[Rfam]
RNA: t44 RNA
Organism: Pantoea sp. At-9b
RNA sequence: CUCAUUAUGUGUACUAAAACACACAUGUAUCGACACGUACACCGGGGUGCCUCGUAAGAGGUCGGUUGUAUGGGAUACAUGGAGGCCCAAC
Numbered sequence: 001c002u003c004a005u006u007a008u009g010u011g012u013a014c015u016a017a018a019a020c021a022c023a024c025a026u027g028u029a030u031c032g033a034c035a036c037g038u039a040c041a042c043c044g045g046g047g048u049g050c051c052u053c054g055u056a057a058g059a060g061g062u063c064g065g066u067u068g069u070a071u072g073g074g075a076u077a078c079a080u081g082g083a084g085g086c087c088c089a090a091c
Base pairs, nucleotide, nucleotide: 024081025080026079027078028077029076030075031074036072037071038070039069040068041066042065043064044063049062050061051060052059053058